[Rfam]
The family of this 100-nucleotide RNA sequence from Polycladospora coralii is "Purine riboswitch aptamer". Taxonomically the source falls in Polycladospora (Bacteria, Bacillota, Bacilli, Thermoactinomycetaceae).

RNA sequence: AAAAUAAAGCAUUAAACCCCUCAUAUAAUAUCAAGGAUUGGCUUGAAAGUUUCUACCGAGUGACCGUAAUCAUUCGACUAUGAGAGGAAAUUCCGUUUUU
Numbered sequence: 001a002a003a004a005u006a007a008a009g010c011a012u013u014a015a016a017c018c019c020c021u022c023a024u025a026u027a028a029u030a031u032c033a034a035g036g037a038u039u040g041g042c043u044u045g046a047a048a049g050u051u052u053c054u055a056c057c058g059a060g061u062g063a064c065c066g067u068a069a070u071c072a073u074u075c076g077a078c079u080a081u082g083a084g085a086g087g088a089a090a091u092u093c094c095g096u097u098u099u100u
Stems, first nucleotide, its partner, number of pairs: 018086001020084006029048001031046005057076007